RNA sequence: CCCUCGCCCAACAGAUCGCUAUCGAAGCUCACAAACGAAAAGAUUCUUCUCGGAGAGUCUUUUUCCCAUUUUGGCUUCGGGAGAAAGUCCCCGGACAACUUCUGUCUUUUUCUUUUGGGAAAGGAUGGUACUGCGGAAACGCGCCGCCAUAGAAGCAAGCUGCGGCUGAUCUCUGCCUGCUAGCCACUCUUUUGUCCUUUCCCAUCUGCCCUAUCCGUCGUUAAGCCUGCUUUUCUUUUUCUUACGCGAGGGGCAUUAAGCCAGCUUCCUUCGGCCAACCUGGGCGAGGCCAGAGACCAACAUGGACGAAGAUACGAGUCCGCGCUUUGGUCUUGCUCGGGGAAGCCGUCGUUAGCUGGUGUCUCUUGUGGACGGUGAGACGGAAGCUCGGUGGCGGACGGCCGUGGAUGGGGAUUGAUGGGUGGCGUCUUAACGCUGGCUUGAGAAGCUUUUGGUCGAGAUGUUAUAGGGAUGCGAUUGCCUUGGUUUCACACGCCUUGGUUACUCGAUGGGGCUUAUUCUUGGUGCGAGG
Dot-bracket structure: .((((((((((..((((((..(((((((.........(((((((((((....)))))))))))..........)))))).)...[[[.[[[[..........((((....................))))(.(((......))).).....................................................................................................................................................................................................(((....(((..................(.(......................................(.((...)).)....).).))).............))).......................)))))).((..((.........))..)).........]]]]]]]....)))).))))))
Numbered sequence: 001c002c003c004u005c006g007c008c009c010a011a012c013a014g015a016u017c018g019c020u021a022u023c024g025a026a027g028c029u030c031a032c033a034a035a036c037g038a039a040a041a042g043a044u045u046c047u048u049c050u051c052g053g054a055g056a057g058u059c060u061u062u063u064u065c066c067c068a069u070u071u072u073g074g075c076u077u078c079g080g081g082a083g084a085a086a087g088u089c090c091c092c093g094g095a096c097a098a099c100u101u102c103u104g105u106c107u108u109u110u111u112c113u114u115u116u117g118g119g120a121a122a123g124g125a126u127g128g129u130a131c132u133g134c135g136g137a138a139a140c141g142c143g144c145c146g147c148c149a150u151a152g153a154a155g156c157a158a159g160c161u162g163c164g165g166c167u168g169a170u171c172u173c174u175g176c177c178u179g180c181u182a183g184c185c186a187c188u189c190u191u192u193u194g195u196c197c198u199u200u201c202c203c204a205u206c207u208g209c210c211c212u213a214u215c216c217g218u219c220g221u222u223a224a225g226c227c228u229g230c231u232u233u234u235c236u237u238u239u240u241c242u243u244a245c246g247c248g249a250g251g252g253g254c255a256u257u258a259a260g261c262c263a264g265c266u267u268c269c270u271u272c273g274g275c276c277a278a279c280c281u282g283g284g285c286g287a288g289g290c291c292a293g294a295g296a297c298c299a300a301c302a303u304g305g306a307c308g309a310a311g312a313u314a315c316g317a318g319u320c321c322g323c324g325c326u327u328u329g330g331u332c333u334u335g336c337u338c339g340g341g342g343a344a345g346c347c348g349u350c351g352u353u354a355g356c357u358g359g360u361g362u363c364u365c366u367u368g369u370g371g372a373c374g375g376u377g378a379g380a381c382g383g384a385a386g387c388u389c390g391g392u393g394g395c396g397g398a399c400g401g402c403c404g405u406g407g408a409u410g411g412g413g414a415u416u417g418a419u420g421g422g423u424g425g426c427g428u429c430u431u432a433a434c435g436c437u438g439g440c441u442u443g444a445g446a447a448g449c450u451u452u453u454g455g456u457c458g459a460g461a462u463g464u465u466a467u468a469g470g471g472a473u474g475c476g477a478u479u480g481c482c483u484u485g486g487u488u489u490c491a492c493a494c495g496c497c498u499u500g501g502u503u504a505c506u507c508g509a510u511g512g513g514g515c516u517u518a519u520u521c522u523u524g525g526u527g528c529g530a531g532g
Stems, first nucleotide, its partner, number of pairs: 002532006008525004014479006022081001023079006038063011085517003089514004103130004131146001133144003344450003351434003372430001374428001413423001415421002481501002485497002
The family of this 532-nucleotide RNA sequence from Coniochaeta sp. 2T2.1 is "RNase MRP". A reference for the family is Rosenblad et al. (2006), "Inventory and analysis of the protein subunits of the ribonucleases P and MRP provides further evidence of homology between the yeast and human enzymes", Nucleic Acids Res. Its family is annotated with ribonuclease MRP activity, ribonuclease MRP complex and rRNA processing in the Gene Ontology. It scores 96 bits against the family's covariance model. It is annotated as a ribozyme.